[Rfam]
The family of this 110-nucleotide RNA from Alterirhizorhabdus solaris is "TPP riboswitch aptamer (THI element)".
The family's consensus secondary structure is taken from published work.
About the family: Vitamin B(1) in its active form thiamin pyrophosphate (TPP) is an essential coenzyme that is synthesised by coupling of pyrimidine and thiazole moieties in bacteria.
RNA sequence: GACAUAUCCCCGGGGGGCCGCAGCGAGCGGCUGAGAGGUGGCCGAUGCAGCCACGACCCGCAUGACCUGAUCCGGUUCGCACCGGCGUAGGGAGGGCGUGCGGCAACGCU
Numbered sequence: 001g002a003c004a005u006a007u008c009c010c011c012g013g014g015g016g017g018c019c020g021c022a023g024c025g026a027g028c029g030g031c032u033g034a035g036a037g038g039u040g041g042c043c044g045a046u047g048c049a050g051c052c053a054c055g056a057c058c059c060g061c062a063u064g065a066c067c068u069g070a071u072c073c074g075g076u077u078c079g080c081a082c083c084g085g086c087g088u089a090g091g092g093a094g095g096g097c098g099u100g101c102g103g104c105a106a107c108g109c110u
Stems, first nucleotide, its partner, number of pairs: 008096003011060004017031005038054005066091004072085004